The record is a 108-nucleotide RNA sequence from Brassica oleracea, which matches "Small nucleolar RNA snoR97" in Rfam. NCBI's taxonomy places the organism under Eukaryota, Brassicales, Brassicaceae, Brassiceae, Brassica oleracea. On this family, see Marker et al., Curr Biol 2002: "Experimental RNomics: identification of 140 candidates for small non-messenger RNAs in the plant Arabidopsis thaliana". Gene Ontology terms of the family: nucleolus and RNA processing. Rfam classes the family as an H/ACA-box small nucleolar RNA.
RNA sequence: AUAAGCCAAUGUGCUCGUAGUCUGAAUAACUCAGAAAUUGAUAGUGUUUACAUCAGCUUUAUCUCUGCUUCGGCCUUGGGAUAUUAGUUAAACUAGAACACUAUAUUU
Numbered sequence: 001a002u003a004a005g006c007c008a009a010u011g012u013g014c015u016c017g018u019a020g021u022c023u024g025a026a027u028a029a030c031u032c033a034g035a036a037a038u039u040g041a042u043a044g045u046g047u048u049u050a051c052a053u054c055a056g057c058u059u060u061a062u063c064u065c066u067g068c069u070u071c072g073g074c075c076u077u078g079g080g081a082u083a084u085u086a087g088u089u090a091a092a093c094u095a096g097a098a099c100a101c102u103a104u105a106u107u108u
Base pairs, nucleotide, nucleotide: 043102044101045100046099047098048097049096055089056088057087058086062081063080064079065078